Rfam assigns this 82-nucleotide RNA from Anaerobacillus isosaccharinicus to the family "c-di-GMP-I riboswitch aptamer". Lineage of the source: Bacteria > Bacillota > Bacilli > Caryophanales > Anaerobacillus. It scores 74 bits against the family's covariance model. The family's consensus secondary structure is taken from published work.

RNA sequence: CUAGAAAAAUGGCAAACUUGUUGAAAAGCAAGGACGCAAAACUACAGGGGCUAAAGAAUAUCUACGCCAGCCAGUUACCUAU
Numbered sequence: 001c002u003a004g005a006a007a008a009a010u011g012g013c014a015a016a017c018u019u020g021u022u023g024a025a026a027a028g029c030a031a032g033g034a035c036g037c038a039a040a041a042c043u044a045c046a047g048g049g050g051c052u053a054a055a056g057a058a059u060a061u062c063u064a065c066g067c068c069a070g071c072c073a074g075u076u077a078c079c080u081a082u
Base pairs, nucleotide, nucleotide: 012037013036017032018031019030020029021028022027040076041075042074043073047072048071049068050067051066056062057061